The family of this 120-nucleotide RNA from Trichobilharzia regenti is "U5 spliceosomal RNA". A search with the family's covariance model found it, with a score of 56 bits.
RNA sequence: AAACUCUGAUAUAUCCUCAUUUGCUGCAUAAAUCCUUCGCCUUUUACUAAAGAUUUCCGUGAGCAGUCACAAUACAAUGAGUCUUAUCUCUUUUGUUCCAGCUCUGUCUUUCGAUAAAGU
Numbered sequence: 001a002a003a004c005u006c007u008g009a010u011a012u013a014u015c016c017u018c019a020u021u022u023g024c025u026g027c028a029u030a031a032a033u034c035c036u037u038c039g040c041c042u043u044u045u046a047c048u049a050a051a052g053a054u055u056u057c058c059g060u061g062a063g064c065a066g067u068c069a070c071a072a073u074a075c076a077a078u079g080a081g082u083c084u085u086a087u088c089u090c091u092u093u094u095g096u097u098c099c100a101g102c103u104c105u106g107u108c109u110u111u112c113g114a115u116a117a118a119g120u
Base pairs, nucleotide, nucleotide: 003082004081005080006079010069014065016063017062018061019060030056031055032054033053034052036050037049100120102119103118105116106115107114
Background
Lineage of the source: Eukaryota > Neodermata > Trematoda > Schistosomatoidea > Trichobilharzia. Rfam classes the family as a spliceosomal small nuclear RNA.